[Rfam]
RNA: mir-9/mir-79 microRNA precursor family
Organism: Poecilia reticulata
RNA sequence: CAGUUCGUACUUUCGGUUCUCUAGCUUUAUGAAAUUAAAACUCAUACAGCUAGAUAACCAAAGACACAAUCUG
Numbered sequence: 001c002a003g004u005u006c007g008u009a010c011u012u013u014c015g016g017u018u019c020u021c022u023a024g025c026u027u028u029a030u031g032a033a034a035u036u037a038a039a040a041c042u043c044a045u046a047c048a049g050c051u052a053g054a055u056a057a058c059c060a061a062a063g064a065c066a067c068a069a070u071c072u073g
Stems, first nucleotide, its partner, number of pairs: 001073003005069001007067002011063003015059004020054007028046005